[Rfam]
RNA: DUF805b RNA
RNA sequence: CAAGAGGAAUCCGAAAAUCUAUGAUAGAGUAGGAA
Numbered sequence: 001c002a003a004g005a006g007g008a009a010u011c012c013g014a015a016a017a018u019c020u021a022u023g024a025u026a027g028a029g030u031a032g033g034a035a
Stems, first nucleotide, its partner, number of pairs: 003020003010034003